Background
The record is an 85-nucleotide sequence from Eubacterium sp. CAG:603, which matches "NiCo (Nickel/Cobalt) riboswitch aptamer" in Rfam. Pairs were carried over by alignment from the consensus structure, which is taken from published work. Its family is annotated with metal ion homeostasis and cobalt ion binding in the Gene Ontology.
RNA sequence: ACAGUACAAACUGAUCAGACCAUUGGCUUAGCCAAGGAGUCGGGCCUUAGAGCGGCAGUGAGAUUAUAACAUCCACGGGACAGUA
Numbered sequence: 001a002c003a004g005u006a007c008a009a010a011c012u013g014a015u016c017a018g019a020c021c022a023u024u025g026g027c028u029u030a031g032c033c034a035a036g037g038a039g040u041c042g043g044g045c046c047u048u049a050g051a052g053c054g055g056c057a058g059u060g061a062g063a064u065u066a067u068a069a070c071a072u073c074c075a076c077g078g079g080a081c082a083g084u085a
Base pairs, nucleotide, nucleotide: 010084011083012082013081016079018041019040020039023035024034025033026032027031044056045055046054048052058076059075060074062073063072064071

It scores 56 bits against the family's covariance model.